[Rfam]
RNA sequence: GAGAAGGAGAGUGAGAAUCUCUCCCGUCGAAACCCUAAGGAUUCCUGAGCAAGGCUCGUCCCCUCAGGGUAAGUCGGGACCUAAGCCAAGGCCGAAAGGCGUAGGCGAUGGACAACAGGUUUAAAUUCCUGUACCGCUUAAAGUCGAUAUUAGAGAUGUGAUGACGCAAGAGGAUAAGCUAAGCUAGCUGAUGGAUGCUAGUCUAAGAGUCAAGGCCAGUGUGUAGGCAAAUCCGCACACUAUUAAGGCUAAGGCUUGAUAGGUAUCGAAAACAUAAGUAGAGAAGUAGCUGAUUUCAAAUUGCCAAGAAAAGUCACUAUCGAGACCAAAGCGCCCGUACCCGAAACCGACACAGGUAGGGAGGUAGAGAAUACCAAGACGCG
Numbered sequence: 001g002a003g004a005a006g007g008a009g010a011g012u013g014a015g016a017a018u019c020u021c022u023c024c025c026g027u028c029g030a031a032a033c034c035c036u037a038a039g040g041a042u043u044c045c046u047g048a049g050c051a052a053g054g055c056u057c058g059u060c061c062c063c064u065c066a067g068g069g070u071a072a073g074u075c076g077g078g079a080c081c082u083a084a085g086c087c088a089a090g091g092c093c094g095a096a097a098g099g100c101g102u103a104g105g106c107g108a109u110g111g112a113c114a115a116c117a118g119g120u121u122u123a124a125a126u127u128c129c130u131g132u133a134c135c136g137c138u139u140a141a142a143g144u145c146g147a148u149a150u151u152a153g154a155g156a157u158g159u160g161a162u163g164a165c166g167c168a169a170g171a172g173g174a175u176a177a178g179c180u181a182a183g184c185u186a187g188c189u190g191a192u193g194g195a196u197g198c199u200a201g202u203c204u205a206a207g208a209g210u211c212a213a214g215g216c217c218a219g220u221g222u223g224u225a226g227g228c229a230a231a232u233c234c235g236c237a238c239a240c241u242a243u244u245a246a247g248g249c250u251a252a253g254g255c256u257u258g259a260u261a262g263g264u265a266u267c268g269a270a271a272a273c274a275u276a277a278g279u280a281g282a283g284a285a286g287u288a289g290c291u292g293a294u295u296u297c298a299a300a301u302u303g304c305c306a307a308g309a310a311a312a313g314u315c316a317c318u319a320u321c322g323a324g325a326c327c328a329a330a331g332c333g334c335c336c337g338u339a340c341c342c343g344a345a346a347c348c349g350a351c352a353c354a355g356g357u358a359g360g361g362a363g364g365u366a367g368a369g370a371a372u373a374c375c376a377a378g379a380c381g382c383g
Stems, first nucleotide, its partner, number of pairs: 006024006025381004033361004039341002044068006053061002075337004080111002085106003089102001091100003115132005135333005143326003153321002158317005166304004172297003177291005183202006203262002207257004214250003218241007226234002264284001266282002269279001347356002363375004
Rfam assigns this 383-nucleotide part of an RNA from Anaerococcus lactolyticus to the family "Bacterial large subunit ribosomal RNA". The match comes from Rfam's covariance-model search (2699 bits).